pemK RNA: a 64-nucleotide sequence. Pairs were carried over by alignment from the consensus structure, which is taken from published work. The family's RNA type in Rfam is cis-regulatory element.
[Rfam]
RNA sequence: ACAAUGAUACGCCCGUAACUCGCGGCCCGGCCACAAUGAAGGCGGGGAGAUGAAAUUUCUGUGG
Numbered sequence: 001a002c003a004a005u006g007a008u009a010c011g012c013c014c015g016u017a018a019c020u021c022g023c024g025g026c027c028c029g030g031c032c033a034c035a036a037u038g039a040a041g042g043c044g045g046g047g048a049g050a051u052g053a054a055a056u057u058u059c060u061g062u063g064g
Base pairs, nucleotide, nucleotide: 012061013025014024015023016022026047027046028045030043031042032041048060049059050058